[Rfam]
A member of the RNA family "Small nucleolar RNA snoR136" from Malus baccata, 141 nucleotides long. Rfam 15.1 lists 452 matches to the family in 212 species. A reference for the family is Chen and Wu (2009), "Mining small RNA sequencing data: a new approach to identify small nucleolar RNAs in Arabidopsis", Nucleic Acids Res. Lineage of the source: Eukaryota > Viridiplantae > Euphyllophyta > Gunneridae > Malus. Gene Ontology terms of the family: RNA processing and nucleolus.
RNA sequence: AAGGCUUUGAAUAUCGUAUUGAACGUGCACUUGAUUUGAUUUGGUGUGUGUUAUUCUUUGAGAUGAGCCGAGAAAGAUGUUCUCCUCGCUAUCUAAUGCCGCAAUUUCUAUGUGGUAUUUGGACGUCAGAAAACUUAAUCC
Numbered sequence: 001a002a003g004g005c006u007u008u009g010a011a012u013a014u015c016g017u018a019u020u021g022a023a024c025g026u027g028c029a030c031u032u033g034a035u036u037u038g039a040u041u042u043g044g045u046g047u048g049u050g051u052u053a054u055u056c057u058u059u060g061a062g063a064u065g066a067g068c069c070g071a072g073a074a075a076g077a078u079g080u081u082c083u084c085c086u087c088g089c090u091a092u093c094u095a096a097u098g099c100c101g102c103a104a105u106u107u108c109u110a111u112g113u114g115g116u117a118u119u120u121g122g123a124c125g126u127c128a129g130a131a132a133a134c135u136u137a138a139u140c141c
Stems, first nucleotide, its partner, number of pairs: 002064001005062003010058002013055001020053003024048003029045003079134003083130002087125002092123005101113003